transfer-messenger RNA: a 375-nucleotide RNA from Spirosoma agri. From the family's description: Bacterial tmRNA, also known as 10Sa RNA or SsrA, is named for its dual tRNA and mRNA-like properties. Its role is to liberate the mRNA from a stalled ribosome. Taxonomically the source falls in Spirosoma (Bacteria, Pseudomonadati, Cytophagia, Cytophagales).
[Rfam]
RNA sequence: GGGGACGACCGGAAUUGACAGCUUGCAGAGGUCGCGUGUAAGCAUGCCGGGAGUUGUCGAUGUUUCCCGACCCGAACAAAUCGUCAAAACAAUAACUGGCGAAUAUAACUACGCCAUGGCUGCCUAAUCCGGAGGAUUAAGCAAUAGCCAUUGUCUCCCCGGCUUACGUGCUGCUGGCUGGAUCAGGAGGCAUCGACUCGCAGCGCUGGCUCAGUUUAUGGUGUUAACGGCUGAGUGAGACACAGGCACCUACGGAUGAAGCUUGGUCUGGUAUACACCGGGCCGAUUCCCGACAAUCCCAAGUGUACCUAAGCAUGUAGAAAGCGCGUCGGUUUCCUUGACUGGACGAGAGUUCGAAUCUCUCCGUCUCCACAA
Number, nucleotide and partner (000 for none) at each position: 001g371002g370003g369004g368005a367006c366007g365008a000009c000010c000011g000012g000013a000014a000015u000016u000017g000018a000019c344020a343021g342022c340023u000024u000025g337026c000027a335028g000029a000030g000031g000032u331033c000034g329035c328036g327037u326038g325039u324040a000041a000042g000043c317044a316045u315046g314047c313048c074049g073050g072051g071052a000053g000054u000055u086056g085057u000058c083059g082060a081061u080062g000063u000064u000065u000066c000067c000068c000069g000070a000071c051072c050073c049074g048075a000076a000077c000078a000079a000080a061081u060082c059083g058084u000085c056086a055087a000088a000089a000090c000091a000092a000093u000094a000095a000096c000097u000098g000099g000100c000101g000102a000103a000104u000105a000106u000107a000108a000109c000110u000111a000112c000113g000114c000115c000116a151117u150118g149119g148120c147121u146122g145123c000124c000125u000126a000127a000128u000129c000130c000131g000132g000133a000134g000135g000136a000137u000138u000139a000140a000141g000142c000143a000144a000145u122146a121147g120148c119149c118150a117151u116152u192153g191154u190155c189156u188157c187158c000159c181160c180161g179162g178163c177164u176165u000166a000167c000168g000169u000170g206171c205172u000173g000174c000175u000176g164177g163178c162179u161180g160181g159182a000183u000184c000185a000186g000187g157188a156189g155190g154191c153192a152193u000194c000195g000196a000197c000198u000199c000200g000201c000202a000203g000204c000205g171206c170207u000208g000209g000210c235211u234212c233213a232214g231215u230216u000217u000218a000219u000220g251221g250222u000223g000224u000225u246226a000227a000228c000229g000230g215231c214232u213233g212234a211235g210236u000237g000238a000239g000240a000241c000242a000243c000244a000245g000246g225247c000248a000249c000250c221251u220252a000253c000254g290255g289256a288257u000258g000259a000260a000261g283262c282263u000264u000265g279266g278267u277268c000269u000270g309271g308272u307273a306274u305275a304276c303277a267278c266279c265280g000281g000282g262283c261284c000285g000286a000287u000288u256289c255290c254291c000292g000293a000294c000295a000296a000297u000298c000299c000300c000301a000302a000303g276304u275305g274306u273307a272308c271309c270310u000311a000312a000313g047314c046315a045316u044317g043318u000319a000320g000321a000322a000323a000324g039325c038326g037327c036328g035329u034330c000331g032332g000333u000334u000335u027336c000337c025338u000339u000340g022341a000342c021343u020344g019345g000346a000347c000348g364349a363350g362351a361352g360353u000354u000355c000356g000357a000358a000359u000360c352361u351362c350363u349364c348365c007366g006367u005368c004369u003370c002371c001372a000373c000374a000375a000

The match comes from Rfam's covariance-model search (107 bits). For this family Rfam cites "tmRDB (tmRNA database)" (Zwieb et al., Nucleic Acids Res, 2003). It is annotated as a non-coding RNA gene.